[Rfam]
RNA sequence: CUCUUUUCCUCCUUCACGGAUCUGUGCCCAGCGAUCCUCUGCCGCUUCGGUGGUCAGGGUCGAUUGCUGCGGCAGUUCGGUGAGCCAAGGAGCCAUCUACUCUUCAUGAUGUCAAUUUCCACCCGACAGAUCCCAGAUCGAUCGAACUUCGAGGUAGUCUCGUUCGCUGUAAAAGGUUUGAGCGAGGUGAGCCGGAGUUCAAGACGCUAUAUUCCAAGCCGUUCGCUGAGACCGUCGGUCUAUGAGGCUGGGGAAAACCAUGGCACGUCCUACAUUU
Number, nucleotide and partner (000 for none) at each position: 001c000002u000003c000004u000005u000006u000007u000008c000009c000010u000011c000012c000013u000014u000015c000016a000017c000018g133019g132020a131021u130022c129023u128024g127025u126026g073027c072028c071029c069030a068031g067032c000033g065034a064035u063036c062037c059038u058039c057040u056041g055042c053043c052044g051045c050046u000047u000048c000049g000050g045051u044052g043053g042054u000055c041056a040057g039058g038059g037060u000061c000062g036063a035064u034065u033066g000067c031068u030069g029070c000071g028072g027073c026074a000075g000076u000077u000078c000079g000080g000081u125082g124083a000084g122085c000086c000087a000088a000089g113090g112091a000092g110093c000094c108095a000096u000097c000098u000099a000100c000101u000102c000103u000104u000105c000106a000107u000108g094109a000110u092111g000112u090113c089114a000115a000116u000117u000118u000119c000120c000121a000122c084123c000124c082125g081126a025127c024128a023129g022130a021131u020132c019133c018134c000135a000136g000137a000138u000139c000140g000141a000142u000143c000144g000145a000146a198147c197148u196149u195150c194151g193152a000153g000154g000155u000156a000157g000158u185159c000160u000161c184162g183163u182164u181165c180166g179167c176168u175169g000170u000171a000172a000173a000174a000175g168176g167177u000178u000179u166180g165181a164182g163183c162184g161185a158186g000187g000188u000189g000190a000191g000192c000193c151194g150195g149196a148197g147198u146199u000200c000201a000202a000203g269204a268205c267206g264207c263208u262209a261210u260211a000212u000213u000214c000215c000216a000217a000218g000219c253220c252221g000222u250223u000224c000225g248226c247227u246228g000229a000230g240231a239232c238233c237234g000235u000236c000237g233238g232239u231240c230241u000242a000243u000244g000245a000246g227247g226248c225249u000250g222251g000252g220253g219254a000255a000256a000257a000258c000259c000260a210261u209262g208263g207264c206265a000266c000267g205268u204269c203270c000271u000272a000273c000274a000275u000276u000277u000
The record is a 277-nucleotide RNA sequence from Chaetomium globosum, which matches "A. fumigatus sRNA Afu_309" in Rfam. The family's RNA type in Rfam is small RNA.